[Rfam]
RNA sequence: UCCCCGAAAAGGCAAAUCCGCCGAAAGGUGGAGGCGCAAAGUCUCGGGCCUACGGCGCAAACAUGCGCUAUGGCGGCCGGGCUGCCGAA
Numbered sequence: 001u002c003c004c005c006g007a008a009a010a011g012g013c014a015a016a017u018c019c020g021c022c023g024a025a026a027g028g029u030g031g032a033g034g035c036g037c038a039a040a041g042u043c044u045c046g047g048g049c050c051u052a053c054g055g056c057g058c059a060a061a062c063a064u065g066c067g068c069u070a071u072g073g074c075g076g077c078c079g080g081g082c083u084g085c086c087g088a089a
Stems, first nucleotide, its partner, number of pairs: 012037002017032006040083004045079003048074003055068004

This 89-nucleotide RNA sequence from Ardenticatena maritima belongs to the Rfam family "c-di-GMP-I riboswitch aptamer". The base pairs follow the family's consensus structure, which is taken from published work. It scores 80 bits against the family's covariance model. Taxonomically the source falls in Ardenticatena (Bacteria, Chloroflexota, Ardenticatenales, Ardenticatenaceae).